[Rfam]
RNA sequence: UGACCGCAGGUGCUCUGACGAGGUUGCACUACUGUGCUCUUAGAAGCAGUGCAAUGACAUUGUCAAAGCAUCUAGGAUCCGC
Numbered sequence: 001u002g003a004c005c006g007c008a009g010g011u012g013c014u015c016u017g018a019c020g021a022g023g024u025u026g027c028a029c030u031a032c033u034g035u036g037c038u039c040u041u042a043g044a045a046g047c048a049g050u051g052c053a054a055u056g057a058c059a060u061u062g063u064c065a066a067a068g069c070a071u072c073u074a075g076g077a078u079c080c081g082c
Base pairs, nucleotide, nucleotide: 002079003078008073009072010071011070012069013068014067016065017064018063019062023055024054025053026052027051028050029049030048034040
RNA: mir-301 microRNA precursor family
Organism: Tupaia belangeri